Shown here is a 98-nucleotide RNA from Prolemur simus, a member of the family "Vault RNA". For this family Rfam cites "Evolution of Vault RNAs" (Stadler et al., Mol Biol Evol, 2009).

RNA sequence: GGAGUGGCUUUAGCUCAGCUGUUUCUUCAACAGUGUUUUAACAACCUCUUUGCAGAGGCAGAGCGGUUUGAGACCCGUGGAUGCUCUCCAGCCCUUAA
Numbered sequence: 001g002g003a004g005u006g007g008c009u010u011u012a013g014c015u016c017a018g019c020u021g022u023u024u025c026u027u028c029a030a031c032a033g034u035g036u037u038u039u040a041a042c043a044a045c046c047u048c049u050u051u052g053c054a055g056a057g058g059c060a061g062a063g064c065g066g067u068u069u070g071a072g073a074c075c076c077g078u079g080g081a082u083g084c085u086c087u088c089c090a091g092c093c094c095u096u097a098a
Stems, first nucleotide, its partner, number of pairs: 002093001005090003013082001015080002018078002021075001026072005
This family of RNAs are found as part of the enigmatic vault ribonucleoprotein complex.